[Rfam]
RNA sequence: AUAAACAUUCUUUAUUGUGCUCUUUAUCACUUCAAACUGGCGCCAACUCUCAGUAUGAUGGCGAGAGGACAACCCUCGCCGCUGACGGUGAGGGUUUUCUUUUGGA
Numbered sequence: 001a002u003a004a005a006c007a008u009u010c011u012u013u014a015u016u017g018u019g020c021u022c023u024u025u026a027u028c029a030c031u032u033c034a035a036a037c038u039g040g041c042g043c044c045a046a047c048u049c050u051c052a053g054u055a056u057g058a059u060g061g062c063g064a065g066a067g068g069a070c071a072a073c074c075c076u077c078g079c080c081g082c083u084g085a086c087g088g089u090g091a092g093g094g095u096u097u098u099c100u101u102u103u104g105g106a
Base pairs, nucleotide, nucleotide: 014032017030018029019028071096072095073094074093075092076091077090078089079088080087081086
Enterobacteria rnk leader: a 106-nucleotide RNA sequence from Trabulsiella odontotermitis. It is annotated as a cis-regulatory leader. A reference for the family is Naville and Gautheret (2010), "Premature terminator analysis sheds light on a hidden world of bacterial transcriptional attenuation", Genome Biol.